Rfam assigns this 96-nucleotide RNA sequence from Cnephaeus nilssonii to the family "mir-9261 microRNA precursor family". A search with the family's covariance model found it, with a score of 98 bits.
RNA sequence: AACAAUUUGUCCCGCGUCCCACGGCGUUUUAAAAAAGAUUCUUUCCAAAAAUAGGGACUUUUUAAAAACGCCGUGGGACGCGGGACAAAUUGUUAA
Numbered sequence: 001a002a003c004a005a006u007u008u009g010u011c012c013c014g015c016g017u018c019c020c021a022c023g024g025c026g027u028u029u030u031a032a033a034a035a036a037g038a039u040u041c042u043u044u045c046c047a048a049a050a051a052u053a054g055g056g057a058c059u060u061u062u063u064a065a066a067a068a069c070g071c072c073g074u075g076g077g078a079c080g081c082g083g084g085a086c087a088a089a090u091u092g093u094u095a096a
Base pairs, nucleotide, nucleotide: 001094002093003092004091005090006089007088008087009086010085011084012083013082014081015080016079017078018077019076020075021074022073023072024071025070026069027068028067029066030065032063033062034061035060036059037058
Background:
Rfam 15.1 lists 196 matches to the family in 3 species.